The family of this 142-nucleotide sequence from Arachis hypogaea is "small nucleolar RNA snoR135".
For this family Rfam cites "Mining small RNA sequencing data: a new approach to identify small nucleolar RNAs in Arabidopsis" (Chen and Wu, Nucleic Acids Res, 2009).
Pairs were carried over by alignment from the consensus structure, which was predicted with RNAalifold.
Lineage of the source: Eukaryota > Embryophyta > eudicotyledons > Gunneridae > Arachis.
The match comes from Rfam's covariance-model search (121 bits).
[Rfam]
RNA sequence: AGUGCAGGGAUUGUGUGUAUCAGGGGUGUGCUGAAUUCAAUGCACUCUUCUGAAAGAUUUCCCUGCAAGAUUACUAUGAGAAAAUGGGCAGUUGUGGUUCAUUUUCCUGUUGAUAAUCUCAACAAUCAUUUUCCCUACAUUU
Dot-bracket structure: ...(((((((....((((((...................))))))..............)))))))...........(.((((((((...((((.........................))))..)))))))).).......